The record is a 117-nucleotide sequence from Cavia porcellus, which matches "Small nucleolar RNA SNORA40" in Rfam.
The match comes from Rfam's covariance-model search (56 bits).
NCBI's taxonomy places the organism under Eukaryota, Bilateria, Mammalia, Hystricomorpha, Cavia.
About the family: The snoRNA ACA 40 belongs to the H/ACA family of snoRNAs and guides the pseudouridylation of 28S rRNA subunit at position U4565. NB This family has a high threshold value to exclude a large number of closely related sequences that do not appear to have conserved H and ACA boxes, and may be pseudogenes.
On this family, see Ofengand and Bakin, J Mol Biol 1997: "Mapping to nucleotide resolution of pseudouridine residues in large subunit ribosomal RNAs from representative eukaryotes, prokaryotes, archaebacteria, mitochondria and chloroplasts".
The family's consensus secondary structure was predicted with RNAalifold.
RNA sequence: AGCUCUUACAUGCAUUUUUGUUUAAUUUGCAGACAAAGACUUAUAGACAGGUACCAAAACAUUCUCUUUGGGAACCUAGAACUCAUUGUGAGUUCUAAGCCACUUCAAAGUGAUAGA
Numbered sequence: 001a002g003c004u005c006u007u008a009c010a011u012g013c014a015u016u017u018u019u020g021u022u023u024a025a026u027u028u029g030c031a032g033a034c035a036a037a038g039a040c041u042u043a044u045a046g047a048c049a050g051g052u053a054c055c056a057a058a059a060c061a062u063u064c065u066c067u068u069u070g071g072g073a074a075c076c077u078a079g080a081a082c083u084c085a086u087u088g089u090g091a092g093u094u095c096u097a098a099g100c101c102a103c104u105u106c107a108a109a110g111u112g113a114u115a116g117a
Stems, first nucleotide, its partner, number of pairs: 002054001005051003011045001015039007026031001061114001063113002067109005077097009